SAM riboswitch aptamer (S box leader): a 109-nucleotide RNA sequence from Aneurinibacillus migulanus.
For this family Rfam cites "Discrimination between closely related cellular metabolites by the SAM-I riboswitch" (Montange et al., J Mol Biol, 2010).
Pairs were carried over by alignment from the consensus structure, which is taken from published work.
RNA sequence: UUCUUAUCCAGAGAAGGCGGAGGGAUUAGGCCCGAUGAAGCCCGGCAACCUGCUUGCAUAUGCGCAGCAAGGUGCUACUUCCUACAGACACGGUUCUGAAAGAUAAGGU
Numbered sequence: 001u002u003c004u005u006a007u008c009c010a011g012a013g014a015a016g017g018c019g020g021a022g023g024g025a026u027u028a029g030g031c032c033c034g035a036u037g038a039a040g041c042c043c044g045g046c047a048a049c050c051u052g053c054u055u056g057c058a059u060a061u062g063c064g065c066a067g068c069a070a071g072g073u074g075c076u077a078c079u080u081c082c083u084a085c086a087g088a089c090a091c092g093g094u095u096c097u098g099a100a101a102g103a104u105a106a107g108g109u
Stems, first nucleotide, its partner, number of pairs: 002108007013043001016042003022033003027084004044076004049072002051069004080101001085098004